A member of the RNA family "Archaeal large subunit ribosomal RNA" from Salinarchaeum sp. Harcht-Bsk1, 359 nucleotides of a longer RNA.

RNA sequence: CGGGAGCAACCGACGUUAGGGAAUUCGGCAAGUUAGUCCCGUACCUUCGGAAGAAGGGAUGCCUGCCCCGCAACGGGGCAGGCCGCAGUGACUCGGAUGCUCCGACUGUCUACUAACAACAUAGGUGACCGCAAAUCCGCAAGGACUCGUACGGUCACUGAAUCCUGCCCAGUGCAGGUAUCUGAACACCUCGUACAGGAGGACGAAGGACCUGUUAACGGCGGGGGUAACUAUGACCCUCUUAAGGUAGCGUAGUACCUUGCCGCUUCAGUAGCGGCUUGCAUGAAUGGAUUAACGAGAGCAUCACUGUCCCAACGUUGGGCCCGGUGAACUGUACGUUCCAGUGCGGAGUCUGGAGA
Numbered sequence: 001c002g003g004g005a006g007c008a009a010c011c012g013a014c015g016u017u018a019g020g021g022a023a024u025u026c027g028g029c030a031a032g033u034u035a036g037u038c039c040c041g042u043a044c045c046u047u048c049g050g051a052a053g054a055a056g057g058g059a060u061g062c063c064u065g066c067c068c069c070g071c072a073a074c075g076g077g078g079c080a081g082g083c084c085g086c087a088g089u090g091a092c093u094c095g096g097a098u099g100c101u102c103c104g105a106c107u108g109u110c111u112a113c114u115a116a117c118a119a120c121a122u123a124g125g126u127g128a129c130c131g132c133a134a135a136u137c138c139g140c141a142a143g144g145a146c147u148c149g150u151a152c153g154g155u156c157a158c159u160g161a162a163u164c165c166u167g168c169c170c171a172g173u174g175c176a177g178g179u180a181u182c183u184g185a186a187c188a189c190c191u192c193g194u195a196c197a198g199g200a201g202g203a204c205g206a207a208g209g210a211c212c213u214g215u216u217a218a219c220g221g222c223g224g225g226g227g228u229a230a231c232u233a234u235g236a237c238c239c240u241c242u243u244a245a246g247g248u249a250g251c252g253u254a255g256u257a258c259c260u261u262g263c264c265g266c267u268u269c270a271g272u273a274g275c276g277g278c279u280u281g282c283a284u285g286a287a288u289g290g291a292u293u294a295a296c297g298a299g300a301g302c303a304u305c306a307c308u309g310u311c312c313c314a315a316c317g318u319u320g321g322g323c324c325c326g327g328u329g330a331a332c333u334g335u336a337c338g339u340u341c342c343a344g345u346g347c348g349g350a351g352u353c354u355g356g357a358g359a
Stems, first nucleotide, its partner, number of pairs: 001326004010321008019312003036060005045050001061083009084088001096305007103297002107121003124159008132149001136145003162292004167222003172219002174215005181210003189202004223241006242246001262278006340357005